Shown here is a 71-nucleotide sequence from Elysia chlorotica, a member of the family "mir-137 microRNA precursor family". The family's consensus secondary structure was predicted with RNAalifold. On this family, see Ruby et al., Genome Res 2007: "Evolution, biogenesis, expression, and target predictions of a substantially expanded set of Drosophila microRNAs". The match comes from Rfam's covariance-model search (71 bits).
[Rfam]
RNA sequence: GUCGGUGACGGGUAUUCUUGGGUAAAUAAUACACUUGUACCUGUUAUUGCUUGAGAAUACACGUAACCAAU
Dot-bracket structure: ((.((..(((.((((((((((((.(((((((..........))))))))))))))))))).)))..)).))